[Rfam]
RNA sequence: GUUCAACAAAACAUUCAUCGCGGGCCUUUCCUAAGACCCCGUAGCCAAUUUUUGGGAUCCCUAGUUUGUUGCUAGGGAUA
Numbered sequence: 001g002u003u004c005a006a007c008a009a010a011a012c013a014u015u016c017a018u019c020g021c022g023g024g025c026c027u028u029u030c031c032u033a034a035g036a037c038c039c040c041g042u043a044g045c046c047a048a049u050u051u052u053u054g055g056g057a058u059c060c061c062u063a064g065u066u067u068g069u070u071g072c073u074a075g076g077g078a079u080a
Stems, first nucleotide, its partner, number of pairs: 022039003026035003057079009

The family of this 80-nucleotide sequence from Caenorhabditis bovis is "SmY spliceosomal RNA". NCBI's taxonomy places the organism under Eukaryota, Protostomia, Rhabditida, Rhabditoidea, Caenorhabditis. The family's consensus secondary structure is taken from published work. The family's RNA type in Rfam is spliceosomal small nuclear RNA. The literature on the family includes a 2007 paper in RNA by MacMorris et al., "A novel family of C. elegans snRNPs contains proteins associated with trans-splicing".